[Rfam]
RNA sequence: GUUUUCGGAUAAUCGCAGGAUAGAGUAAUCUAUUUUGAGGAAAGUCCAUGCUCGCACAGGCUGAGAUGCGUGUAGUGAUCGUGCUUAACGAAAAAAUAAGUUAAGGUACUUGUUAACUAAUGAGUAACGGCAGAUAAAAUGGCUAAGGUGCUUUGUGCACUAUGUCAGAGUAGUCUUGAAAGUGCCACAGUGACGAAGUAAUUUUAGAAAUAAAAUUAGUGGAACGGGUAAACCCCUCGAGCGAGCAACCCAAACAUAUGGUAGGGGCACCAAUCUCAAGGAAAUGAACUUAGAGAAGGGACAGUGUAUUCUGUAGACAGAUGAUUAUCAUCAUUAUCCGUUCCUGAGGGAUAAUGAUACAAAACAUGGCUUACAGAA
Numbered sequence: 001g002u003u004u005u006c007g008g009a010u011a012a013u014c015g016c017a018g019g020a021u022a023g024a025g026u027a028a029u030c031u032a033u034u035u036u037g038a039g040g041a042a043a044g045u046c047c048a049u050g051c052u053c054g055c056a057c058a059g060g061c062u063g064a065g066a067u068g069c070g071u072g073u074a075g076u077g078a079u080c081g082u083g084c085u086u087a088a089c090g091a092a093a094a095a096a097u098a099a100g101u102u103a104a105g106g107u108a109c110u111u112g113u114u115a116a117c118u119a120a121u122g123a124g125u126a127a128c129g130g131c132a133g134a135u136a137a138a139a140u141g142g143c144u145a146a147g148g149u150g151c152u153u154u155g156u157g158c159a160c161u162a163u164g165u166c167a168g169a170g171u172a173g174u175c176u177u178g179a180a181a182g183u184g185c186c187a188c189a190g191u192g193a194c195g196a197a198g199u200a201a202u203u204u205u206a207g208a209a210a211u212a213a214a215a216u217u218a219g220u221g222g223a224a225c226g227g228g229u230a231a232a233c234c235c236c237u238c239g240a241g242c243g244a245g246c247a248a249c250c251c252a253a254a255c256a257u258a259u260g261g262u263a264g265g266g267g268c269a270c271c272a273a274u275c276u277c278a279a280g281g282a283a284a285u286g287a288a289c290u291u292a293g294a295g296a297a298g299g300g301a302c303a304g305u306g307u308a309u310u311c312u313g314u315a316g317a318c319a320g321a322u323g324a325u326u327a328u329c330a331u332c333a334u335u336a337u338c339c340g341u342u343c344c345u346g347a348g349g350g351a352u353a354a355u356g357a358u359a360c361a362a363a364a365c366a367u368g369g370c371u372u373a374c375a376g377a378a
Stems, first nucleotide, its partner, number of pairs: 004378003007374001008329007016037006042372003046369005051245005056073003060069002079240003083236001084105006106128001107126008129235002132176004140167004147161005182233002184229003199218008249266003270300002274296003301314004331357009
RNA: Bacterial RNase P class B
Organism: Vagococcus vulneris